[Rfam]
Nucleotides: 109
Base pairs, nucleotide, nucleotide: 001109002108003107004106005105006104007103014099015098016097024033025032035095036094037093039090040088043085044084045083048068049067051065052064054062055061069082070081072079
Number, partner (000 for none) and nucleotide at each position: 001109a002108c003107u004106g005105a006104g007103g008000a009000g010000u011000g012000a013000u014099g015098a016097c017000a018000g019000g020000a021000a022000a023000g024033g025032c026000c027000g028000a029000a030000u031000c032025g033024c034000a035095g036094u037093g038000c039090u040088c041000g042000c043085c044084g045083g046000c047000a048068g049067u050000u051065u052064g053000c054062u055061c056000u057000c058000u059000g060000c061055g062054g063000c064052u065051g066000c067049a068048c069082g070081a071000u072079g073000a074000c075000a076000a077000a078000a079072c080000c081070u082069c083045c084044u085043g086000a087000a088040g089000c090039g091000a092000a093037c094036a095035u096000g097016g098015u099014c100000u101000g102000a103007c104006c105005u106004c107003a108002g109001u
The record is a 109-nucleotide RNA sequence from Myotis brandtii, which matches "Small nucleolar RNA SNORD89" in Rfam. A reference for the family is Huttenhofer et al. (2001), "RNomics: an experimental approach that identifies 201 candidates for novel, small, non-messenger RNAs in mouse", EMBO J. A search with the family's covariance model found it, with a score of 89 bits. Gene Ontology terms of the family: nucleolus and RNA processing. From the family's description: snoRNA HBII-289 belongs to the family of C/D snoRNAs.